Annotation
A member of the RNA family "Small nucleolar RNA SNORA29" from Austrofundulus limnaeus, 137 nucleotides long. It scores 61 bits against the family's covariance model. Rfam 15.1 lists 960 matches to the family in 621 species. Its Rfam clan is "SNORA20 clan". On this family, see Huttenhofer et al., EMBO J 2001: "RNomics: an experimental approach that identifies 201 candidates for novel, small, non-messenger RNAs in mouse". The base pairs follow the family's consensus structure, which was predicted with PFOLD.

RNA sequence: AACCCCAUUUUAGUACCUUCCGUUCAGCCUAAAUGAAUGGGGGGCUAUGCUAAUGGGGUAGAAAAACCCUGUCAUGAUCUGAAGGUGUGGCUAGCUGACUGUGCGCCCCGCUUAAUGAAGUGACAGAACAUGUGAAA
Numbered sequence: 001a002a003c004c005c006c007a008u009u010u011u012a013g014u015a016c017c018u019u020c021c022g023u024u025c026a027g028c029c030u031a032a033a034u035g036a037a038u039g040g041g042g043g044g045c046u047a048u049g050c051u052a053a054u055g056g057g058g059u060a061g062a063a064a065a066a067c068c069c070u071g072u073c074a075u076g077a078u079c080u081g082a083a084g085g086u087g088u089g090g091c092u093a094g095c096u097g098a099c100u101g102u103g104c105g106c107c108c109c110g111c112u113u114a115a116u117g118a119a120g121u122g123a124c125a126g127a128a129c130a131u132g133u134g135a136a137a
Stems, first nucleotide, its partner, number of pairs: 004057004016044004071124004089112003